RNA sequence: CGGUGAGGUAGAGGUGCAGACGUCAUUAGUAAUCAAUGGGAGCCAGGCAAGCUAGGAUCAUUGAGGAAAGGGAUGAGUUUCUGCCGAAGUGUACGAUAGUGUUGUCAGACUAUCCUAUGCUGGUGUAUAUCUGAAGAAGAGACACACUGUCAUGCAUGCUCUUUUGGGUGCAUGGGGCGCUACUGAUCGA
Numbered sequence: 001c002g003g004u005g006a007g008g009u010a011g012a013g014g015u016g017c018a019g020a021c022g023u024c025a026u027u028a029g030u031a032a033u034c035a036a037u038g039g040g041a042g043c044c045a046g047g048c049a050a051g052c053u054a055g056g057a058u059c060a061u062u063g064a065g066g067a068a069a070g071g072g073a074u075g076a077g078u079u080u081c082u083g084c085c086g087a088a089g090u091g092u093a094c095g096a097u098a099g100u101g102u103u104g105u106c107a108g109a110c111u112a113u114c115c116u117a118u119g120c121u122g123g124u125g126u127a128u129a130u131c132u133g134a135a136g137a138a139g140a141g142a143c144a145c146a147c148u149g150u151c152a153u154g155c156a157u158g159c160u161c162u163u164u165u166g167g168g169u170g171c172a173u174g175g176g177g178c179g180c181u182a183c184u185g186a187u188c189g190a
Base pairs, nucleotide, nucleotide: 007184008183009182010181011180016084017083018082019081020080021075022074023073024072033064034063035062036061037060038059039058088121089120090119091118092117093116095114096113097112098111099110122148123147124146125145126144128142130140131139132138150175151174152173153172154171155170156169

This 190-nucleotide RNA sequence from Halobacillus halophilus belongs to the Rfam family "Lysine riboswitch aptamer". The organism belongs to Halobacillus halophilus, within Bacteria. Rfam describes the family as follows. Riboswitches are metabolite binding domains within certain messenger RNAs that serve as precision sensors for their corresponding targets.